[Rfam]
RNA sequence: GUUCCCAAUGAUGUUCUAUUUCCUAUCCAUGCUAAUGCUGAUCUCAAAUGAUUAAUAAUGUCAAUUUGUACAACUGAGGGAGCU
Numbered sequence: 001g002u003u004c005c006c007a008a009u010g011a012u013g014u015u016c017u018a019u020u021u022c023c024u025a026u027c028c029a030u031g032c033u034a035a036u037g038c039u040g041a042u043c044u045c046a047a048a049u050g051a052u053u054a055a056u057a058a059u060g061u062c063a064a065u066u067u068g069u070a071c072a073a074c075u076g077a078g079g080g081a082g083c084u
Base pairs, nucleotide, nucleotide: 001083002082003081004080005079
The family of this 84-nucleotide RNA from Senna tora is "Small nucleolar RNA snoR53Y". Its Rfam clan is "snoR53 clan". Its family is annotated with nucleolus and RNA processing in the Gene Ontology. The family's RNA type in Rfam is C/D-box small nucleolar RNA. The family has 7 seed sequences and 513 matches in Rfam 15.1.